The record is a 165-nucleotide sequence from Cellulomonas aerilata, which matches "c-di-AMP riboswitch aptamer (ydaO/yuaA leader)" in Rfam. Pairs were carried over by alignment from the consensus structure. NCBI's taxonomy places the organism under Bacteria, Bacillati, Actinomycetota, Micrococcales, Cellulomonas.
RNA sequence: CCGGACGAACCGCCGGCAGGAGCGGGGGACCCAAGGUUUGUGGGCGCCAGGGAUGGCGUCCUCGGGGUGAAGCCGGGGCGGAUGUCGCAUGCGACGUCCCCACGGCCGGGUGCAUCUCCUACCCGAACCCGACAGCUGACCUCGCAGGCGUACAGGAGAGGCACA
Numbered sequence: 001c002c003g004g005a006c007g008a009a010c011c012g013c014c015g016g017c018a019g020g021a022g023c024g025g026g027g028g029a030c031c032c033a034a035g036g037u038u039u040g041u042g043g044g045c046g047c048c049a050g051g052g053a054u055g056g057c058g059u060c061c062u063c064g065g066g067g068u069g070a071a072g073c074c075g076g077g078g079c080g081g082a083u084g085u086c087g088c089a090u091g092c093g094a095c096g097u098c099c100c101c102a103c104g105g106c107c108g109g110g111u112g113c114a115u116c117u118c119c120u121a122c123c124c125g126a127a128c129c130c131g132a133c134a135g136c137u138g139a140c141c142u143c144g145c146a147g148g149c150g151u152a153c154a155g156g157a158g159a160g161g162c163a164c165a
Base pairs, nucleotide, nucleotide: 001020002019022145023144024143025142026141027140032064065130066129067128073105074104075103108124109123110122111121